[Rfam]
RNA: Alphaproteobacterial sRNA ar35
Organism: Mycoplana dimorpha
RNA sequence: AUCGGCAUUGCUGAUGAGCGCUGGAAUGUAUCUGCCGCUCGCAAGCGCCGAAGUCGCUUAUGACUUUGACCACGGAUGUACUGGCACUGUAGAGAAGCGAUGAUGAGGAAGGUCGGUGCGGUUUCGCCCCGACCUUUUUUAUU
Numbered sequence: 001a002u003c004g005g006c007a008u009u010g011c012u013g014a015u016g017a018g019c020g021c022u023g024g025a026a027u028g029u030a031u032c033u034g035c036c037g038c039u040c041g042c043a044a045g046c047g048c049c050g051a052a053g054u055c056g057c058u059u060a061u062g063a064c065u066u067u068g069a070c071c072a073c074g075g076a077u078g079u080a081c082u083g084g085c086a087c088u089g090u091a092g093a094g095a096a097g098c099g100a101u102g103a104u105g106a107g108g109a110a111g112g113u114c115g116g117u118g119c120g121g122u123u124u125c126g127c128c129c130c131g132a133c134c135u136u137u138u139u140u141a142u143u
Stems, first nucleotide, its partner, number of pairs: 003050004008044002016040005053101007063090002067086002070084003103142014118127003